[Rfam]
RNA sequence: CUGUAGUUAAUUAGGCUGACUGACUGGAUUCCUUUACUAAUGGUAACCCACUGUGUAAGGCUGCAAACAGCAGUAUCUUUAGUAUAUAUGUGGCCUGUUGCUUGAAUGGGUUGCCCUAAGGGACCUUGGAGACAGUG
Numbered sequence: 001c002u003g004u005a006g007u008u009a010a011u012u013a014g015g016c017u018g019a020c021u022g023a024c025u026g027g028a029u030u031c032c033u034u035u036a037c038u039a040a041u042g043g044u045a046a047c048c049c050a051c052u053g054u055g056u057a058a059g060g061c062u063g064c065a066a067a068c069a070g071c072a073g074u075a076u077c078u079u080u081a082g083u084a085u086a087u088a089u090g091u092g093g094c095c096u097g098u099u100g101c102u103u104g105a106a107u108g109g110g111u112u113g114c115c116c117u118a119a120g121g122g123a124c125c126u127u128g129g130a131g132a133c134a135g136u137g
Base pairs, nucleotide, nucleotide: 002057003056004055005054023052025050026049029046030045032043082124083123091113092112093111094110095109096108